[Rfam]
RNA sequence: UGUCUCCUCUAUUCUCCUCAAAAAAGGAUAGAUUCAGCCCGCUUCCGAGCGGGCUUUUUUUU
Numbered sequence: 001u002g003u004c005u006c007c008u009c010u011a012u013u014c015u016c017c018u019c020a021a022a023a024a025a026g027g028a029u030a031g032a033u034u035c036a037g038c039c040c041g042c043u044u045c046c047g048a049g050c051g052g053g054c055u056u057u058u059u060u061u062u
Base pairs, nucleotide, nucleotide: 008032009031010030011029012028013027014026036055037054038053039052040051041050042049043048

The record is a 62-nucleotide sequence from Herbaspirillum sp. SJZ107, which matches "Betaproteobacteria toxic small RNA" in Rfam. On this family, see Kimelman et al., Genome Res 2012: "A vast collection of microbial genes that are toxic to bacteria". A search with the family's covariance model found it, with a score of 61 bits. Overexpression in amino aid rich medium attenuates growth, suggesting role in repressing amino acid intake and metabolism.